[Rfam]
Nucleotides: 078
Stems, first nucleotide, its partner, number of pairs: 016046001018045004024078001027075004031041003051066006
Number, partner (000 for none) and nucleotide at each position: 001000a002000g003000a004000g005000g006000u007000c008000a009000c010000a011000a012000g013000u014000u015000u016046g017000a018045g019044g020043c021042c022000a023000u024078g025000a026000c027075a028074g029073a030072a031041a032040u033039g034000u035000u036000c037000a038000g039033u040032a041031u042021g043020g044019c045018c046016c047000u048000g049000u050000c051066a052065g053064a054063u055062u056061c057000c058000a059000a060000u061056g062055a063054a064053u065052c066051u067000u068000u069000g070000a071000a072030u073029u074028c075027u076000a077000c078024u

The record is a 78-nucleotide RNA from Alligator sinensis, which matches "Mammalian CPEB3 ribozyme" in Rfam. The source organism's lineage runs through Eukaryota, Eumetazoa, Deuterostomia, Alligatorinae and Alligator. From the family's description: The mammalian CPEB3 ribozyme is a self cleaving RNA located in the second intron of the CPEB3 gene which belongs to a family of genes regulating messenger RNA polyadenylation.